Shown here is an 86-nucleotide RNA sequence from Paenibacillus psychroresistens, a member of the family "c-di-GMP-I riboswitch aptamer". The family is grouped with related families in Rfam's "c-di-GMP_I riboswitch clan".
RNA sequence: UACUUGCGAGGGCGAUUUUGGUGAAAGCCAAGGGAGCAAAGCCAUAGGCCUAAGGUUCUAAGAACUAAGGUAUCUAGGUUGCAACG
Numbered sequence: 001u002a003c004u005u006g007c008g009a010g011g012g013c014g015a016u017u018u019u020g021g022u023g024a025a026a027g028c029c030a031a032g033g034g035a036g037c038a039a040a041g042c043c044a045u046a047g048g049c050c051u052a053a054g055g056u057u058c059u060a061a062g063a064a065c066u067a068a069g070g071u072a073u074c075u076a077g078g079u080u081g082c083a084a085c086g
Base pairs, nucleotide, nucleotide: 012037013036017032018031019030020029021028022027040080041079042078043077045076046075047074048071049070050069055065056064057063058062
The family's consensus secondary structure is taken from published work. Its family is annotated with cyclic-di-GMP binding in the Gene Ontology.